[Rfam]
RNA sequence: AGGACACCUCGUUCGGUGAGGCGUCUUCACGGACAAAGGCCACUGAUCCCAUCGGUCGAGAGACCCUCCGGAUCAGGACAGAUCUCCUCGGCUUAAGGGGUGAUCCCAAGUGGCUGCGCAGCUGACGCUACGCCGUGAAGUGCCGAAGCUCUGACGAGAGAGGUGGCCG
Numbered sequence: 001a002g003g004a005c006a007c008c009u010c011g012u013u014c015g016g017u018g019a020g021g022c023g024u025c026u027u028c029a030c031g032g033a034c035a036a037a038g039g040c041c042a043c044u045g046a047u048c049c050c051a052u053c054g055g056u057c058g059a060g061a062g063a064c065c066c067u068c069c070g071g072a073u074c075a076g077g078a079c080a081g082a083u084c085u086c087c088u089c090g091g092c093u094u095a096a097g098g099g100g101u102g103a104u105c106c107c108a109a110g111u112g113g114c115u116g117c118g119c120a121g122c123u124g125a126c127g128c129u130a131c132g133c134c135g136u137g138a139a140g141u142g143c144c145g146a147a148g149c150u151c152u153g154a155c156g157a158g159a160g161a162g163g164u165g166g167c168c169g
Stems, first nucleotide, its partner, number of pairs: 005165006011155002013096001015150003020144003025140008039114005045074005054065004081105004087099003116128003
RNA: M-box riboswitch aptamer (ykoK leader)
Organism: Catenulispora acidiphila